mir-36 microRNA precursor family: a 100-nucleotide RNA from Rhododendron williamsianum. Its family is annotated with miRNA-mediated post-transcriptional gene silencing and RISC complex in the Gene Ontology. The family is grouped with related families in Rfam's "mir-36 clan". Taxonomically the source falls in Rhododendron (Eukaryota, Gunneridae, Ericales, Ericaceae). The family's consensus secondary structure was predicted with WAR.

RNA sequence: UGUUUUCAAUGGUUCGGAUCCGCGGAAGGUUUAUGACCAGUGAUAAAUGAUCACCUCAUUUAUCACCGGUCAUAAACCUUCCGCGGAUCCAGAUCAUUGA
Numbered sequence: 001u002g003u004u005u006u007c008a009a010u011g012g013u014u015c016g017g018a019u020c021c022g023c024g025g026a027a028g029g030u031u032u033a034u035g036a037c038c039a040g041u042g043a044u045a046a047a048u049g050a051u052c053a054c055c056u057c058a059u060u061u062a063u064c065a066c067c068g069g070u071c072a073u074a075a076a077c078c079u080u081c082c083g084c085g086g087a088u089c090c091a092g093a094u095c096a097u098u099g100a
Stems, first nucleotide, its partner, number of pairs: 016090007024082015040066006